Nucleotides: 107
Base pairs, nucleotide, nucleotide: 023086024085025084026083027082034077035076036075037074038073043068044067045066050062051061052060053059
Number, partner (000 for none) and nucleotide at each position: 001000a002000c003000u004000c005000a006000a007000c008000g009000c010000u011000a012000u013000a014000u015000c016000u017000u018000u019000a020000u021000a022000a023086a024085g025084a026083g027082u028000a029000a030000g031000u032000c033000g034077u035076u036075a037074u038073u039000g040000u041000u042000a043068g044067a045066g046000c047000a048000a049000g050062c051061c052060a053059u054000c055000u056000u057000g058000a059053a060052u061051g062050g063000a064000u065000c066045c067044u068043c069000g070000a071000c072000c073038a074037a075036u076035a077034a078000g079000u080000u081000a082027g083026c084025u085024c086023u087000a088000a089000u090000c091000u092000u093000g094000u095000u096000u097000a098000u099000a100000a101000g102000g103000a104000g105000u106000u107000u

Shown here is a 107-nucleotide sequence from Lutibacter oricola, a member of the family "6S-Flavo RNA". Lineage of the source: Bacteria > Pseudomonadati > Bacteroidota > Flavobacteriia > Lutibacter. The family's consensus secondary structure is taken from published work. It is annotated as a small RNA.